A member of the RNA family "TPP riboswitch aptamer (THI element)" from Nocardiopsis sp. L17-MgMaSL7, 111 nucleotides long. The source organism's lineage runs through Bacteria, Bacillati, Actinomycetota, Actinomycetes and Nocardiopsis.
[Rfam]
RNA sequence: GACAUGUCCCGCGGGAGCCGGGUGGACCCGGCUGAGAGGGAGGCUCGCGGCCUCCGACCGCACGAACCUGAUCCGGGUCAUACCGGCGAAGGGAGUGGAACACGGCGCCGU
Numbered sequence: 001g002a003c004a005u006g007u008c009c010c011g012c013g014g015g016a017g018c019c020g021g022g023u024g025g026a027c028c029c030g031g032c033u034g035a036g037a038g039g040g041a042g043g044c045u046c047g048c049g050g051c052c053u054c055c056g057a058c059c060g061c062a063c064g065a066a067c068c069u070g071a072u073c074c075g076g077g078u079c080a081u082a083c084c085g086g087c088g089a090a091g092g093g094a095g096u097g098g099a100a101c102a103c104g105g106c107g108c109c110g111u
Stems, first nucleotide, its partner, number of pairs: 006101002009098002011061004017032005039055007067092003073086004
Vitamin B(1) in its active form thiamin pyrophosphate (TPP) is an essential coenzyme that is synthesised by coupling of pyrimidine and thiazole moieties in bacteria. The previously detected thiamin-regulatory element, thi box was extended, resulting in a new, highly conserved RNA secondary structure, the THI element, which is widely distributed in eubacteria and also occurs in some archaea. Analysis of operon structures identified a large number of new candidate thiamin-regulated genes, mostly transporters, in various prokaryotic organisms.